[Rfam]
RNA sequence: CCCGACAAAGGCAAACCGGUGGCGACGCCGGGACGCAAAGCUUCCGGCCUUGGACACAAGGUAGCGGGGUUGCCGAAA
Numbered sequence: 001c002c003c004g005a006c007a008a009a010g011g012c013a014a015a016c017c018g019g020u021g022g023c024g025a026c027g028c029c030g031g032g033a034c035g036c037a038a039a040g041c042u043u044c045c046g047g048c049c050u051u052g053g054a055c056a057c058a059a060g061g062u063a064g065c066g067g068g069g070u071u072g073c074c075g076a077a078a
Stems, first nucleotide, its partner, number of pairs: 003075002011036002016031006034064001039071004044067003047062003
RNA: c-di-GMP-I-GGC riboswitch aptamer
Organism: Sphingobium subterraneum